[Rfam]
RNA sequence: UUCUUAUCAAGAGUGGCGGAGGGACAGGCCCGAUGAAGCCCGGCAACCGAUUUGUGCAUAAUUCGAUUAAAUUCAGGCAGGACCUGAUGAAUUGUGCUGAAUGACAUGGUGCUAAAUCCUUCAGAAGUGUAGCUUGCUACAAUUCUGGCAGAUGAGAA
Numbered sequence: 001u002u003c004u005u006a007u008c009a010a011g012a013g014u015g016g017c018g019g020a021g022g023g024a025c026a027g028g029c030c031c032g033a034u035g036a037a038g039c040c041c042g043g044c045a046a047c048c049g050a051u052u053u054g055u056g057c058a059u060a061a062u063u064c065g066a067u068u069a070a071a072u073u074c075a076g077g078c079a080g081g082a083c084c085u086g087a088u089g090a091a092u093u094g095u096g097c098u099g100a101a102u103g104a105c106a107u108g109g110u111g112c113u114a115a116a117u118c119c120u121u122c123a124g125a126a127g128u129g130u131a132g133c134u135u136g137c138u139a140c141a142a143u144u145c146u147g148g149c150a151g152a153u154g155a156g157a158a
Base pairs, nucleotide, nucleotide: 001158002157003156004155005154006153007152008151013041015040016039017038021031022030023029026120027119028118042113043112044111045110047109048108049105051103117150122147123146124145125144126143
RNA: SAM riboswitch aptamer (S box leader)